Guanidine-II riboswitch aptamer (mini-ykkC): a 47-nucleotide RNA from Gemmobacter megaterium. Rfam links the family to the GO term regulation of gene expression. The family's consensus secondary structure is taken from published work. NCBI's taxonomy places the organism under Bacteria, Alphaproteobacteria, Rhodobacterales, Paracoccaceae, Gemmobacter.
[Rfam]
RNA sequence: CAGUGAGGACGACCUCACCCGUAUCGGGGCUGUUCGGGACGACCCGC
Number, nucleotide and partner (000 for none) at each position: 001c000002a000003g018004u017005g016006a015007g014008g013009a000010c000011g000012a000013c008014c007015u006016c005017a004018c003019c000020c000021g000022u000023a000024u000025c000026g000027g000028g000029g000030c000031u000032g000033u000034u000035c046036g045037g044038g043039a000040c000041g000042a000043c038044c037045c036046g035047c000